The record is a 120-nucleotide sequence from Fructobacillus pseudoficulneus, which matches "Ribosomal protein L10 leader" in Rfam. The source organism's lineage runs through Bacteria, Bacillati, Bacillota, Lactobacillaceae and Fructobacillus. Rfam classes the family as a cis-regulatory leader. For this family Rfam cites "Diverse mechanisms for regulating ribosomal protein synthesis in Escherichia coli" (Zengel and Lindahl, Prog Nucleic Acid Res Mol Biol, 1994). The family's consensus secondary structure was predicted with CMfinder. A search with the family's covariance model found it, with a score of 72 bits.
RNA sequence: UGAAUUAAAUCAUUUUUGCCUAAGACUCAGGUGGUGCUUGCACCUUAAUAUCCUGCCGAGGAAGUUAAAUUACUAACUUUACCCGUCUGUCUUCUGGCAGGCGGGUUUCUUUUGCAAAAA
Numbered sequence: 001u002g003a004a005u006u007a008a009a010u011c012a013u014u015u016u017u018g019c020c021u022a023a024g025a026c027u028c029a030g031g032u033g034g035u036g037c038u039u040g041c042a043c044c045u046u047a048a049u050a051u052c053c054u055g056c057c058g059a060g061g062a063a064g065u066u067a068a069a070u071u072a073c074u075a076a077c078u079u080u081a082c083c084c085g086u087c088u089g090u091c092u093u094c095u096g097g098c099a100g101g102c103g104g105g106u107u108u109c110u111u112u113u114g115c116a117a118a119a120a
Stems, first nucleotide, its partner, number of pairs: 028055004033044003082105010